Overview: This 58-nucleotide RNA belongs to the Rfam family "pemK RNA".

RNA sequence: AUAAUGAUACUCCUGUACGCAGCUUCGAGAGUUCCUCGGAGGGGUGAGAGUCCCGUGA
Numbered sequence: 001a002u003a004a005u006g007a008u009a010c011u012c013c014u015g016u017a018c019g020c021a022g023c024u025u026c027g028a029g030a031g032u033u034c035c036u037c038g039g040a041g042g043g044g045u046g047a048g049a050g051u052c053c054c055g056u057g058a
Stems, first nucleotide, its partner, number of pairs: 012055001013022003023041003027037003042054003
It is one of the family's seed sequences. The family's consensus secondary structure is taken from published work.